[Rfam]
RNA sequence: UCGUACUAGCCGGGGAGUUAGCGGUGCCCUGUACCUGCAAUCCGCUACAGCAGGGGUGAAUGCCAUACUGAGGGUUUAACUUGUUUGGUCUGACUUGUAUAAGUGAUGUUGAGAGUUGGGUCCCACGCAAUAAAGAUCUGUGAACCUCGUCAGGUCCGGAAGGAAGCAGCGAUAAGCGGAAGCCUUUAUGUGCCGUGGAUCAAUCUGGCUUGAGUUAACUGUACUUGUAACGCUUAUAAGUUAUUAUUCGAGGUAUGGUGUACGG
Numbered sequence: 001u002c003g004u005a006c007u008a009g010c011c012g013g014g015g016a017g018u019u020a021g022c023g024g025u026g027c028c029c030u031g032u033a034c035c036u037g038c039a040a041u042c043c044g045c046u047a048c049a050g051c052a053g054g055g056g057u058g059a060a061u062g063c064c065a066u067a068c069u070g071a072g073g074g075u076u077u078a079a080c081u082u083g084u085u086u087g088g089u090c091u092g093a094c095u096u097g098u099a100u101a102a103g104u105g106a107u108g109u110u111g112a113g114a115g116u117u118g119g120g121u122c123c124c125a126c127g128c129a130a131u132a133a134a135g136a137u138c139u140g141u142g143a144a145c146c147u148c149g150u151c152a153g154g155u156c157c158g159g160a161a162g163g164a165a166g167c168a169g170c171g172a173u174a175a176g177c178g179g180a181a182g183c184c185u186u187u188a189u190g191u192g193c194c195g196u197g198g199a200u201c202a203a204u205c206u207g208g209c210u211u212g213a214g215u216u217a218a219c220u221g222u223a224c225u226u227g228u229a230a231c232g233c234u235u236a237u238a239a240g241u242u243a244u245u246a247u248u249c250g251a252g253g254u255a256u257g258g259u260g261u262a263c264g265g
Base pairs, nucleotide, nucleotide: 001265002264003263004262005261006260009057010056011055012030013029014028015027017025018024019023034054035053036052037051038050063258064257065256066255067254068253069252072249073248074247075246078242079241080240081239082238083237084236087233091229092228097224098223099222100221103219104218105216106215107214113211114210115209116208117207118206119205120204121203123198124197125196126195127194128190129189131188132187133186134185135184137180138179139178140177141176147172148171149170150169155164156163157162

A member of the RNA family "Bacterial large signal recognition particle RNA" from Hathewaya proteolytica, 265 nucleotides long. Taxonomically the source falls in Hathewaya proteolytica (Bacteria, Bacillati, Clostridia, Clostridiaceae). Pairs were carried over by alignment from the consensus structure, which is taken from published work. The family's RNA type in Rfam is non-coding RNA gene. A reference for the family is Rosenblad et al. (2003), "SRPDB: Signal Recognition Particle Database", Nucleic Acids Res.